[Rfam]
RNA sequence: UAGCUCGGGUUUCUCUUCAUUUACACAUAAAUCUUUCGCCUUUCACUAAAGAUUUACGUGGAGAGGAGGGUUGAUGAGUUUAAUGUAUUUUUGCAGGCUGUGCUAAUGCAAAGCU
Numbered sequence: 001u002a003g004c005u006c007g008g009g010u011u012u013c014u015c016u017u018c019a020u021u022u023a024c025a026c027a028u029a030a031a032u033c034u035u036u037c038g039c040c041u042u043u044c045a046c047u048a049a050a051g052a053u054u055u056a057c058g059u060g061g062a063g064a065g066g067a068g069g070g071u072u073g074a075u076g077a078g079u080u081u082a083a084u085g086u087a088u089u090u091u092u093g094c095a096g097g098c099u100g101u102g103c104u105a106a107u108g109c110a111a112a113g114c115u
Base pairs, nucleotide, nucleotide: 003079004078005077006076010068011067012066013065014064015063016062017061018060019059029055030054031053032052033051034050035049036048095115097114098113099112101110102109
RNA: U5 spliceosomal RNA
Organism: Bagarius yarrelli